Record summary
A member of the RNA family "pan motif" from Tepidimicrobium xylanilyticum, 80 nucleotides long. By type it is a cis-regulatory element. Taxonomically the source falls in Tepidimicrobium (Bacteria, Bacillati, Tissierellia, Tissierellales). A search with the family's covariance model found it, with a score of 45 bits.
[Rfam]
RNA sequence: UUGCUGGCAUCUAAGGGAGCCAGACAAAAUAAGGGUAAUAUAAAAAUACGACUGGUAUCCAAAGGGAACUGGAUCGGAGG
Numbered sequence: 001u002u003g004c005u006g007g008c009a010u011c012u013a014a015g016g017g018a019g020c021c022a023g024a025c026a027a028a029a030u031a032a033g034g035g036u037a038a039u040a041u042a043a044a045a046a047u048a049c050g051a052c053u054g055g056u057a058u059c060c061a062a063a064g065g066g067a068a069c070u071g072g073a074u075c076g077g078a079g080g
Base pairs, nucleotide, nucleotide: 001027002026003025004023005022006021007020008019010018011017049076050075051074052072053071054070055069056068058067059066060065